Background
MIR5565 microRNA precursor family: a 104-nucleotide RNA from Sorghum bicolor. Lineage of the source: Eukaryota > Streptophyta > Streptophytina > Sorghinae > Sorghum. Rfam 15.1 lists 3,346 matches to the family in 5 species. The family's consensus secondary structure was predicted with RNAalifold. A search with the family's covariance model found it, with a score of 86 bits.
RNA sequence: ACAAUUCAUACAAAUCCACAUGUGUUGAGGUGGAUUGGAGUGGAAUUUGAACUAAAUUCCACCCCAAUCCACACCAACACAUAUGGAUUGAAGUGAAUACGACA
Numbered sequence: 001a002c003a004a005u006u007c008a009u010a011c012a013a014a015u016c017c018a019c020a021u022g023u024g025u026u027g028a029g030g031u032g033g034a035u036u037g038g039a040g041u042g043g044a045a046u047u048u049g050a051a052c053u054a055a056a057u058u059c060c061a062c063c064c065c066a067a068u069c070c071a072c073a074c075c076a077a078c079a080c081a082u083a084u085g086g087a088u089u090g091a092a093g094u095g096a097a098u099a100c101g102a103c104a
Stems, first nucleotide, its partner, number of pairs: 004098006013089006020082008030072009040062003